A member of the RNA family "mir-631 microRNA precursor family" from Cervus elaphus, 74 nucleotides long. It scores 60 bits against the family's covariance model. On this family, see Brameier, BMC Res Notes 2010: "Genome-wide comparative analysis of microRNAs in three non-human primates". Gene Ontology terms of the family: miRNA-mediated post-transcriptional gene silencing and RISC complex.

RNA sequence: GGGGAGCCUAGUUAGACCUGGCUCAGACAUCAGCUUCAAAGCUGAUGGAACGAGUCAGGGGGCCAAGGCUCUCC
Numbered sequence: 001g002g003g004g005a006g007c008c009u010a011g012u013u014a015g016a017c018c019u020g021g022c023u024c025a026g027a028c029a030u031c032a033g034c035u036u037c038a039a040a041g042c043u044g045a046u047g048g049a050a051c052g053a054g055u056c057a058g059g060g061g062g063c064c065a066a067g068g069c070u071c072u073c074c
Stems, first nucleotide, its partner, number of pairs: 001074006009066001012061002017059006024052001028048001030045006